[Rfam]
RNA sequence: AACUCGGCAAAAUAGCCCCGUAACUUCGGGAGAAGGGGUGCCUCCUCACAAAGGGGGUCGCAGUGACCAG
Numbered sequence: 001a002a003c004u005c006g007g008c009a010a011a012a013u014a015g016c017c018c019c020g021u022a023a024c025u026u027c028g029g030g031a032g033a034a035g036g037g038g039u040g041c042c043u044c045c046u047c048a049c050a051a052a053g054g055g056g057g058u059c060g061c062a063g064u065g066a067c068c069a070g
Stems, first nucleotide, its partner, number of pairs: 015039005024029001040058007059063001
Dot-bracket structure: ..............(((((....(....).....)))))(((((((.....)))))))(...).......

The family of this 70-nucleotide part of an RNA from Musa balbisiana is "Archaeal large subunit ribosomal RNA". The base pairs follow the family's consensus structure, which is taken from published work. A search with the family's covariance model found it, with a score of 1484 bits.